[Rfam]
RNA sequence: ACGAUGUUCCGCUGCAUGGAUUGUAUGACUUGGAAUGAGCAUCUG
Numbered sequence: 001a002c003g004a005u006g007u008u009c010c011g012c013u014g015c016a017u018g019g020a021u022u023g024u025a026u027g028a029c030u031u032g033g034a035a036u037g038a039g040c041a042u043c044u045g
Stems, first nucleotide, its partner, number of pairs: 003043007013035001015032002018029001
Shown here is a 45-nucleotide sequence from Metabacillus lacus, a member of the family "Ribosomal protein L19 leader". On this family, see Zengel and Lindahl, Prog Nucleic Acid Res Mol Biol 1994: "Diverse mechanisms for regulating ribosomal protein synthesis in Escherichia coli". The source organism's lineage runs through Bacteria, Bacillota, Bacilli, Bacillaceae and Metabacillus. A search with the family's covariance model found it, with a score of 38 bits. Gene Ontology term of the family: regulation of gene expression. The base pairs follow the family's consensus structure, which was predicted with CMfinder. Rfam's curators write: This family is a putative r-protein leader autoregulatory structure found in B. subtilis and other low-GC Gram-positive bacteria.